[Rfam]
RNA sequence: ACUGAGGUAUGGCGUAAGUACAAGGAAGCUAUCACUUCAAA
Numbered sequence: 001a002c003u004g005a006g007g008u009a010u011g012g013c014g015u016a017a018g019u020a021c022a023a024g025g026a027a028g029c030u031a032u033c034a035c036u037u038c039a040a041a
Stems, first nucleotide, its partner, number of pairs: 003039006009032005